RNA sequence: UUGAAUUAAAUCAUUGUGGAUCUACAUUUUGAAAAUUGAACUCACAAAAAGUGAUAUGACAUACAUUGAUUUUAUCUAA
Numbered sequence: 001u002u003g004a005a006u007u008a009a010a011u012c013a014u015u016g017u018g019g020a021u022c023u024a025c026a027u028u029u030u031g032a033a034a035a036u037u038g039a040a041c042u043c044a045c046a047a048a049a050a051g052u053g054a055u056a057u058g059a060c061a062u063a064c065a066u067u068g069a070u071u072u073u074a075u076c077u078a079a
Stems, first nucleotide, its partner, number of pairs: 001079003005075002008072006015065004023056002025053006
Rfam assigns this 79-nucleotide RNA sequence from Medicago truncatula to the family "MIR5269 microRNA precursor family". Rfam 15.1 lists 389 matches to the family in 6 species. The family's consensus secondary structure was predicted with RNAalifold.